[Rfam]
mir-7386 microRNA precursor family: a 61-nucleotide RNA sequence from Sarcophilus harrisii. Pairs were carried over by alignment from the consensus structure, which was predicted with RNAalifold. Taxonomically the source falls in Sarcophilus (Eukaryota, Teleostomi, Sarcopterygii, Mammalia).

RNA sequence: GCUUGGAUAAGGUAUUCUUAUCUUGUGAAUUUUGCCAAAAUAAAUUACCUUAUCCUUGGAG
Numbered sequence: 001g002c003u004u005g006g007a008u009a010a011g012g013u014a015u016u017c018u019u020a021u022c023u024u025g026u027g028a029a030u031u032u033u034g035c036c037a038a039a040a041u042a043a044a045u046u047a048c049c050u051u052a053u054c055c056u057u058g059g060a061g
Base pairs, nucleotide, nucleotide: 002058005055006054007053008052009051010050011049012048018043020041021040023038024037025036027035